[Rfam]
RNA sequence: GUAGGCCGAAAGCCACGACACUCGCUCCGCACAGAACCUUACCGUUCUUCUCUCGCGAGUGGGCUAAGGUCUGAGGAUAAAUGCUCCCUUAAUUGGCUCUAGCUGGGCCUGGCUUCAACUGGCCAAGUGGCUUAUCAGAAAAUCGCUGGAUGUCUCCUUUUUUGUCCAAAGACCUUCGUAUUCGUACGGAGUGAGGAAAAUGGGGGAUGUCUGGCUUGGAAUUAGUUAUGGAGAUUGGGCGCGAUUUUUUCGGCGUAUCUUCCUGGUUUCCCUCUACCUCACACGCAGAUGCUCCUUCAGGGAAGCGUGGGUGGCUGGUUGUUGAGCGGCAAAUAGCCGGCCCGCCGGUCACUUGUUCGAGUCCGCUGUGAAGCGGAUUUGAACCUGUUUUGUCACACUGCAGUACGCAGAAUUUUUAUACCGCGAACCGUUUAAACCUUCCUGUCCGCGGUGUAUCUGGCUAUAGCGCACAGCUUUUACACCACAGGCGGUCCGGGCGUUUGUAAUGUGCGGUAUACAUACUGAAGUUGGAGCGGUGUUGAUCCUGUGUAGGGAGGGAUCAGGGUUCGAAGAGAUGUUGAAUUUUACGCGUCCUUUAGUGCACUUCGUGGCGCGCGAUUUGCUUCAAGUCCGUCGUGAGACGAGCUUUGGGUUGUCGUGUAACUCGAUUCAGACUACUCUUGGCCUAC
Numbered sequence: 001g002u003a004g005g006c007c008g009a010a011a012g013c014c015a016c017g018a019c020a021c022u023c024g025c026u027c028c029g030c031a032c033a034g035a036a037c038c039u040u041a042c043c044g045u046u047c048u049u050c051u052c053u054c055g056c057g058a059g060u061g062g063g064c065u066a067a068g069g070u071c072u073g074a075g076g077a078u079a080a081a082u083g084c085u086c087c088c089u090u091a092a093u094u095g096g097c098u099c100u101a102g103c104u105g106g107g108c109c110u111g112g113c114u115u116c117a118a119c120u121g122g123c124c125a126a127g128u129g130g131c132u133u134a135u136c137a138g139a140a141a142a143u144c145g146c147u148g149g150a151u152g153u154c155u156c157c158u159u160u161u162u163u164g165u166c167c168a169a170a171g172a173c174c175u176u177c178g179u180a181u182u183c184g185u186a187c188g189g190a191g192u193g194a195g196g197a198a199a200a201u202g203g204g205g206g207a208u209g210u211c212u213g214g215c216u217u218g219g220a221a222u223u224a225g226u227u228a229u230g231g232a233g234a235u236u237g238g239g240c241g242c243g244a245u246u247u248u249u250u251c252g253g254c255g256u257a258u259c260u261u262c263c264u265g266g267u268u269u270c271c272c273u274c275u276a277c278c279u280c281a282c283a284c285g286c287a288g289a290u291g292c293u294c295c296u297u298c299a300g301g302g303a304a305g306c307g308u309g310g311g312u313g314g315c316u317g318g319u320u321g322u323u324g325a326g327c328g329g330c331a332a333a334u335a336g337c338c339g340g341c342c343c344g345c346c347g348g349u350c351a352c353u354u355g356u357u358c359g360a361g362u363c364c365g366c367u368g369u370g371a372a373g374c375g376g377a378u379u380u381g382a383a384c385c386u387g388u389u390u391u392g393u394c395a396c397a398c399u400g401c402a403g404u405a406c407g408c409a410g411a412a413u414u415u416u417u418a419u420a421c422c423g424c425g426a427a428c429c430g431u432u433u434a435a436a437c438c439u440u441c442c443u444g445u446c447c448g449c450g451g452u453g454u455a456u457c458u459g460g461c462u463a464u465a466g467c468g469c470a471c472a473g474c475u476u477u478u479a480c481a482c483c484a485c486a487g488g489c490g491g492u493c494c495g496g497g498c499g500u501u502u503g504u505a506a507u508g509u510g511c512g513g514u515a516u517a518c519a520u521a522c523u524g525a526a527g528u529u530g531g532a533g534c535g536g537u538g539u540u541g542a543u544c545c546u547g548u549g550u551a552g553g554g555a556g557g558g559a560u561c562a563g564g565g566u567u568c569g570a571a572g573a574g575a576u577g578u579u580g581a582a583u584u585u586u587a588c589g590c591g592u593c594c595u596u597u598a599g600u601g602c603a604c605u606u607c608g609u610g611g612c613g614c615g616c617g618a619u620u621u622g623c624u625u626c627a628a629g630u631c632c633g634u635c636g637u638g639a640g641a642c643g644a645g646c647u648u649u650g651g652g653u654u655g656u657c658g659u660g661u662a663a664c665u666c667g668a669u670u671c672a673g674a675c676u677a678c679u680c681u682u683g684g685c686c687u688a689c
Base pairs, nucleotide, nucleotide: 001689002688003687004686007683008682009681012612013611014610015609016608017607018606020060021059022058023057024056034047035046036045037044071673072672073671074670075669084233085232086231087230095109096108097107098106099105110125111124112123113122114121127229128228129227130226131225132224145215146214147213613661614660615659616658617657618656619655

Background
Shown here is a 689-nucleotide sequence from Collybiopsis luxurians, a member of the family "Nuclear RNase P". Rfam describes the family as follows. Ribonuclease P (RNase P) is a ubiquitous endoribonuclease, found in archaea, bacteria and eukarya as well as chloroplasts and mitochondria. Taxonomically the source falls in Collybiopsis luxurians (Eukaryota, Opisthokonta, Fungi, Agaricomycetes). The family is grouped with related families in Rfam's "RNaseP clan". The match comes from Rfam's covariance-model search (57 bits).